[Rfam]
Shown here is a 59-nucleotide RNA sequence from Pyrobaculum islandicum, a member of the family "Pyrobaculum sRNA 208".
Non canonical pseudouridylation guide sRNA features. Predicted to target 23S U1978 in Pyrobaculum.
For this family Rfam cites "Discovery of Pyrobaculum small RNA families with atypical pseudouridine guide RNA features" (Bernick et al., RNA, 2012).
It is annotated as an H/ACA-box small nucleolar RNA.
Rfam's curators put it in the seed alignment.
Rfam links the family to the GO term RNA processing.
The organism belongs to Pyrobaculum islandicum, within Archaea.

RNA sequence: UGGAGUUGAGCGGCCCGCCUGGGCCACUAUGAAGACUCCGCGUACGCCAGUGGCUAAGG
Numbered sequence: 001u002g003g004a005g006u007u008g009a010g011c012g013g014c015c016c017g018c019c020u021g022g023g024c025c026a027c028u029a030u031g032a033a034g035a036c037u038c039c040g041c042g043u044a045c046g047c048c049a050g051u052g053g054c055u056a057a058g059g
Stems, first nucleotide, its partner, number of pairs: 001040006007033001012025005